[Rfam]
RNA sequence: GCACUGGUUUAGCUCAGUGGUUACUUCGACCAUCAAUUCUCUCUGCAGAAUUAGUUGAUCUCUAUCCCUCCCUGGGAUCAAACCACGGCUGCUGUCCAGUGUCUUU
Numbered sequence: 001g002c003a004c005u006g007g008u009u010u011a012g013c014u015c016a017g018u019g020g021u022u023a024c025u026u027c028g029a030c031c032a033u034c035a036a037u038u039c040u041c042u043c044u045g046c047a048g049a050a051u052u053a054g055u056u057g058a059u060c061u062c063u064a065u066c067c068c069u070c071c072c073u074g075g076g077a078u079c080a081a082a083c084c085a086c087g088g089c090u091g092c093u094g095u096c097c098a099g100u101g102u103c104u105u106u
Base pairs, nucleotide, nucleotide: 002101003100004099005098006097007096012090014088015087017086018085019084020083025082026081028079029078
Vault RNA: a 106-nucleotide RNA from Amphiprion ocellaris. Pairs were carried over by alignment from the consensus structure, which is taken from published work.